[Rfam]
RNA: Glutamine riboswitch aptamer (glnA leader)
RNA sequence: AUCGUUCAACCUGAUACAUUCAGGUCGCAAGUAAGCCGACUCGGAACGGAUC
Numbered sequence: 001a002u003c004g005u006u007c008a009a010c011c012u013g014a015u016a017c018a019u020u021c022a023g024g025u026c027g028c029a030a031g032u033a034a035g036c037c038g039a040c041u042c043g044g045a046a047c048g049g050a051u052c
Base pairs, nucleotide, nucleotide: 003048004047005046006045007044009025010024011023012022013021028049034041035040